[Rfam]
Shown here is a 165-nucleotide part of an RNA from Verticillium longisporum, a member of the family "Ascomycota telomerase RNA". The family's RNA type in Rfam is non-coding RNA gene. Clan: Telomerase clan. The literature on the family includes a 2013 paper in Nucleic Acids Res by Qi et al., "The common ancestral core of vertebrate and fungal telomerase RNAs". Lineage of the source: Eukaryota > Opisthokonta > Pezizomycotina > leotiomyceta > Verticillium. Rfam 15.1 lists 475 matches to the family in 456 species.
RNA sequence: AUUCGUGCGGUCUUCUUCUGAAGAACGCAAUAUUCCCACUGUUUACCUCGUGGACAGCUUUGGACGAUAGCGCGGUUUUUGAGAAUGUCUUUUGUCCGCGCGCAAUGCCCUCCACCGCCUCGUCUUCGACACGUCACGGAGAGGAAACAAAAACGAGUCCUUGUU
Dot-bracket structure: .....((((...(((....)))...))))....((((((((((((.....)))))))...)))..)).................((((.((((((............((((((...(...(((.(...).)))...))))).))..))))))))..)).......